[Rfam]
Background
Rfam assigns this 168-nucleotide RNA from Escherichia coli to the family "SraB RNA".
RNA sequence: UAGGCAUAUUUUUUUCCAUCAGAUAUAGCGUAUUGAUGAUAGCCAAUUUAAACUAUGCGCUUCGUUUUGCUGACUGGCAACUUUGCCAGCACUGAACGAAAAUAAGGCUGUAACCCGCAAUGUGUGCGAAUUAUUGGCAAAAGGCAACCGCAGGCUGCCUUUUUCUUU
Numbered sequence: 001u002a003g004g005c006a007u008a009u010u011u012u013u014u015u016c017c018a019u020c021a022g023a024u025a026u027a028g029c030g031u032a033u034u035g036a037u038g039a040u041a042g043c044c045a046a047u048u049u050a051a052a053c054u055a056u057g058c059g060c061u062u063c064g065u066u067u068u069g070c071u072g073a074c075u076g077g078c079a080a081c082u083u084u085g086c087c088a089g090c091a092c093u094g095a096a097c098g099a100a101a102a103u104a105a106g107g108c109u110g111u112a113a114c115c116c117g118c119a120a121u122g123u124g125u126g127c128g129a130a131u132u133a134u135u136g137g138c139a140a141a142a143g144g145c146a147a148c149c150g151c152a153g154g155c156u157g158c159c160u161u162u163u164u165c166u167u168u
Stems, first nucleotide, its partner, number of pairs: 018040004061100006070094001072092001074089006110134004116128004139163008148154002
A reference for the family is Argaman et al. (2001), "Novel small RNA-encoding genes in the intergenic regions of Escherichia coli", Curr Biol.
This RNA was discovered in E. coli during a large scale screen. This ncRNA was found to be expressed only in stationary phase.
It is annotated as a small RNA.
The source organism's lineage runs through Bacteria, Pseudomonadati, Pseudomonadota, Escherichia and Escherichia coli.
The sequence is in the family's curated seed alignment.